[Rfam]
RNA sequence: AAGCAAGCCUGUUCUAUCGCUCUCCUGCCUUGGCGGGGGGGAGGAAAGUCCGGACAACGCAGAGCACCUCGCUUCCUAACGGGAAGGAUCUUGAUGGAAUCGGGAUACGGAAAGUGCCACAGAAAAUAAACCGCUUCGACUUGUCGGAGUAAGGGUGAAAACGUGGGGUAAGAGCCCACGGCUUUGCAUGGCAACAUGCAUCGCGGUAAACCCCGGGGGUUGAAAGGUCAAAUAGGUUGCGGAUAUCAGGGAGCUGCUCGCUUCCAUUCCGCCGAUUGCGGAAACCGCAACGGGUAGACCGCUGGAGCCUGGCAGCGAUGACAGGCCAAGAUAAAUGAUAGAAAUCCCGAUUUAUCGGGGGCACAGAAUCCGGCUUAUAGGGUUUGCUUCGUU
Number, nucleotide and partner (000 for none) at each position: 001a389002a388003g387004c386005a385006a384007g383008c382009c381010u380011g378012u343013u342014c341015u340016a339017u338018c337019g000020c041021u040022c039023u038024c037025c036026u035027g034028c033029c000030u000031u000032g000033g028034c027035g026036g025037g024038g023039g022040g021041g020042a000043g000044g000045a000046a376047a375048g374049u000050c373051c372052g371053g370054a369055c222056a221057a220058c219059g000060c000061a000062g277063a276064g000065c274066a000067c218068c217069u216070c215071g214072c086073u085074u084075c083076c082077u000078a000079a000080c000081g000082g076083g075084a074085a073086g072087g108088a106089u105090c104091u103092u102093g101094a100095u000096g000097g000098a000099a000100u094101c093102g092103g091104g090105a089106u088107a000108c087109g213110g212111a000112a000113a000114g211115u210116g207117c206118c205119a000120c000121a000122g000123a000124a000125a000126a000127u000128a000129a000130a000131c154132c153133g150134c149135u148136u147137c146138g145139a144140c000141u000142u000143g000144u139145c138146g137147g136148a135149g134150u133151a000152a000153g132154g131155g000156u000157g000158a000159a000160a000161a000162c180163g179164u178165g177166g176167g175168g000169u000170a000171a000172g000173a000174g000175c167176c166177c165178a164179c163180g162181g000182c000183u000184u000185u200186g199187c198188a197189u196190g195191g000192c000193a000194a000195c190196a189197u188198g187199c186200a185201u000202c000203g000204c000205g118206g117207u116208a000209a000210a115211c114212c110213c109214c071215g070216g069217g068218g067219g058220u057221u056222g055223a000224a000225a000226g300227g299228u298229c297230a000231a000232a000233u000234a000235g000236g291237u290238u289239g288240c287241g286242g000243a000244u000245a000246u000247c000248a000249g000250g000251g000252a000253g000254c000255u000256g000257c000258u000259c000260g000261c000262u000263u000264c000265c000266a000267u000268u282269c281270c280271g279272c278273c000274g065275a000276u063277u062278g272279c271280g270281g269282a268283a000284a000285c000286c241287g240288c239289a238290a237291c236292g000293g000294g000295u000296a000297g229298a228299c227300c226301g000302c000303u000304g000305g000306a000307g326308c325309c324310u323311g322312g000313c320314a319315g000316c000317g000318a000319u314320g313321a000322c311323a310324g309325g308326c307327c000328a000329a000330g000331a000332u000333a000334a000335a000336u000337g018338a017339u016340a015341g014342a013343a012344a000345u000346c000347c000348c000349g000350a000351u000352u000353u000354a000355u000356c000357g000358g000359g000360g000361g000362c000363a000364c000365a000366g000367a000368a000369u054370c053371c052372g051373g050374c048375u047376u046377a000378u011379a000380g010381g009382g008383u007384u006385u005386g004387c003388u002389u001390c000391g000392u000393u000
RNA: Bacterial RNase P class A
Organism: Parapedobacter pyrenivorans